Shown here is a 45-nucleotide RNA from Nannospalax galili, a member of the family "Histone 3' UTR stem-loop". The mRNAs of metazoan histone genes lack a poly-A tail. 3' end processing occurs at a site between a highly conserved stem-loop (modelled by this family) and a purine rich region around 20 nts downstream (the histone downstream element, or HDE). Lineage of the source: Eukaryota > Theria > Euarchontoglires > Myomorpha > Nannospalax. The family's consensus secondary structure is taken from published work. It scores 41 bits against the family's covariance model.
[Rfam]
RNA sequence: CCAAAGGCUCUUUUCAGAGCCACCUACAAUGUUUUAAAAGAGCUA
Numbered sequence: 001c002c003a004a005a006g007g008c009u010c011u012u013u014u015c016a017g018a019g020c021c022a023c024c025u026a027c028a029a030u031g032u033u034u035u036a037a038a039a040g041a042g043c044u045a
Stems, first nucleotide, its partner, number of pairs: 006021006